[Rfam]
RNA sequence: CCGGGAACCAAACUCCUAGCCCUGGCGCCUAAGUGAUGCAUCGACAACGCAUGAUAAGGCGCCCCGGCCGUGGCCGUAAUGGUCACCAGGGUGCGAGGUAGAAAUGCCUGCAUCUCCCGUAUUUGGAAAGGUGUUUAUAGUGAGUCAAC
Numbered sequence: 001c002c003g004g005g006a007a008c009c010a011a012a013c014u015c016c017u018a019g020c021c022c023u024g025g026c027g028c029c030u031a032a033g034u035g036a037u038g039c040a041u042c043g044a045c046a047a048c049g050c051a052u053g054a055u056a057a058g059g060c061g062c063c064c065c066g067g068c069c070g071u072g073g074c075c076g077u078a079a080u081g082g083u084c085a086c087c088a089g090g091g092u093g094c095g096a097g098g099u100a101g102a103a104a105u106g107c108c109u110g111c112a113u114c115u116c117c118c119g120u121a122u123u124u125g126g127a128a129a130g131g132u133g134u135u136u137a138u139a140g141u142g143a144g145u146c147a148a149c
Stems, first nucleotide, its partner, number of pairs: 011135003015131002019068003024063006033055002036052004070086005089115006096109005116126002
Shown here is a 149-nucleotide RNA sequence from Brenneria rubrifaciens, a member of the family "Molybdenum/Tungsten riboswitch aptamer (Moco RNA motif)". On this family, see Regulski et al., Mol Microbiol 2008: "in molybdenum cofactor and tungsten cofactor metabolism". The organism belongs to Brenneria, within Bacteria.